[Rfam]
RNA: sodF sRNA
Organism: Streptomyces coelicolor
RNA sequence: UCGUCCCGCCUCGUGAUCGUCUUCUCAACCUUCACCGGGCGGGCGGAAUGAGGAAGGCCCCCGCGAGGACGUGACUCGCGGGGGCCUUCU
Numbered sequence: 001u002c003g004u005c006c007c008g009c010c011u012c013g014u015g016a017u018c019g020u021c022u023u024c025u026c027a028a029c030c031u032u033c034a035c036c037g038g039g040c041g042g043g044c045g046g047a048a049u050g051a052g053g054a055a056g057g058c059c060c061c062c063g064c065g066a067g068g069a070c071g072u073g074a075c076u077c078g079c080g081g082g083g084g085c086c087u088u089c090u
Base pairs, nucleotide, nucleotide: 001046002045003044005043006042007041008040009039010038011037013035014034015033016032019029020028052090053089054088055087056086057085058084059083060082061081062080063079064078065077066076067075